[Rfam]
Shown here is a 110-nucleotide RNA from Rhodoglobus vestalii, a member of the family "Glycine riboswitch aptamer".
Pairs were carried over by alignment from the consensus structure.
RNA sequence: CAACACGAUGCGGGAGAGCCGAGCAUCCGGUGUCAUCAUGACUCCGAGCACGGCACCGAAGGAGCAAGCCUCCCCGCCAAUCUCUCAGGUUCAUGUACCGCAUCGCACUG
Number, nucleotide and partner (000 for none) at each position: 001c000002a000003a000004c000005a000006c105007g104008a103009u102010g101011c100012g099013g098014g000015a000016g000017a000018g000019c053020c052021g051022a000023g000024c000025a000026u000027c000028c000029g000030g000031u000032g000033u000034c000035a000036u000037c000038a000039u000040g000041a000042c000043u000044c000045c000046g000047a000048g000049c000050a000051c021052g020053g019054c000055a090056c089057c088058g086059a085060a000061g000062g084063a083064g082065c000066a000067a000068g077069c076070c000071u000072c000073c000074c000075c000076g069077c068078c000079a000080a000081u000082c064083u063084c062085u059086c058087a000088g057089g056090u055091u000092c000093a000094u000095g000096u000097a000098c013099c012100g011101c010102a009103u008104c007105g006106c000107a000108c000109u000110g000